[Rfam]
Background:
Rfam assigns this 87-nucleotide sequence from Caenorhabditis angaria to the family "mir-81 microRNA precursor family". It scores 77 bits against the family's covariance model. NCBI's taxonomy places the organism under Eukaryota, Nematoda, Rhabditida, Rhabditomorpha, Caenorhabditis.
RNA sequence: AUACUUCCAGCAAUCGGUUUUCACCUUGAUCUGAGAUGUGUGAGUUUCGGUUCUGAGAUCAUCGUGAAAGCUAGUUGUUGGAAUGUA
Numbered sequence: 001a002u003a004c005u006u007c008c009a010g011c012a013a014u015c016g017g018u019u020u021u022c023a024c025c026u027u028g029a030u031c032u033g034a035g036a037u038g039u040g041u042g043a044g045u046u047u048c049g050g051u052u053c054u055g056a057g058a059u060c061a062u063c064g065u066g067a068a069a070g071c072u073a074g075u076u077g078u079u080g081g082a083a084u085g086u087a
Stems, first nucleotide, its partner, number of pairs: 009079004016072009027061006034054003037049002